[Rfam]
RNA sequence: AUACUUACCUGGACGGGGUCGUUGGGUGAUCAUGAAGAUCCGUGGCCUAGCGUGGUGGCUUCCUGCACUUGAGGUGGCUAACGCAAAGGUCACCCCAAGUGGGAGAUCCUGCGUCAUUAUUUGUUGCCUUGGGGGCCUGCGUUCGCGCAGCCCCCAC
Dot-bracket structure: ...........((((((((((.(((((..........))))))))))).(((.......((..........))........)))..(((((.((......)))..).))).))))..............(((((...((((....))))..))))).
U1 spliceosomal RNA: a 157-nucleotide sequence. Gene Ontology terms of the family: mRNA 5'-splice site recognition, pre-mRNA 5'-splice site binding and U1 snRNP. The literature on the family includes a 1997 paper in Nucleic Acids Res by Zwieb, "The uRNA database". Rfam classes the family as a spliceosomal small nuclear RNA. Its Rfam clan is "U1 clan".